Notes: A member of the RNA family "MIR7504 microRNA precursor family" from Gossypium harknessii, 118 nucleotides long. A search with the family's covariance model found it, with a score of 96 bits. Rfam 15.1 lists 7,343 matches to the family in 61 species.
[Rfam]
RNA sequence: AAUAGGAGGACGACAAAUCAGAUUUUUACUCUUUCAAUUUUUUCCUCCUGAAAAAAUUCAAAUCCAACUAAAAAUGCUAAAAAUCAGGAGUAAAAAUCUGAUUUGUUAUUCUCCUAUU
Dot-bracket structure: ((((((((((.((((((((((((((((.((((((.(...((((...........................))))...).))).....))).)))))))))))))))).))))))))))
Numbered sequence: 001a002a003u004a005g006g007a008g009g010a011c012g013a014c015a016a017a018u019c020a021g022a023u024u025u026u027u028a029c030u031c032u033u034u035c036a037a038u039u040u041u042u043u044c045c046u047c048c049u050g051a052a053a054a055a056a057u058u059c060a061a062a063u064c065c066a067a068c069u070a071a072a073a074a075u076g077c078u079a080a081a082a083a084u085c086a087g088g089a090g091u092a093a094a095a096a097u098c099u100g101a102u103u104u105g106u107u108a109u110u111c112u113c114c115u116a117u118u
Stems, first nucleotide, its partner, number of pairs: 001118010012107016029090003032082003036078001040074004
Pairs were carried over by alignment from the consensus structure, which was predicted with RNAalifold. The organism belongs to Gossypium, within Eukaryota.